[Rfam]
RNA sequence: GCGGGACUAAUACCAAAAUUCUUGUUUCAUCAAGAAGCGGUAUUAGUCCCGCAUUU
Dot-bracket structure: ((((((((((((((....((((((......))))))..))))))))))))))....